[Rfam]
RNA sequence: ACGCAGCACCGGGCCCCUCUGACGUGUGAAGCCGGAUGACCCGUGAUGUCGGAGCUGCAAA
Numbered sequence: 001a002c003g004c005a006g007c008a009c010c011g012g013g014c015c016c017c018u019c020u021g022a023c024g025u026g027u028g029a030a031g032c033c034g035g036a037u038g039a040c041c042c043g044u045g046a047u048g049u050c051g052g053a054g055c056u057g058c059a060a061a
Stems, first nucleotide, its partner, number of pairs: 006055002009052004022044003026040002029037001
Dot-bracket structure: .....((.((((.........(((.((.(.......).)).)))....)))).))......
This 61-nucleotide sequence from Sinorhizobium sp. BG8 belongs to the Rfam family "terC RNA".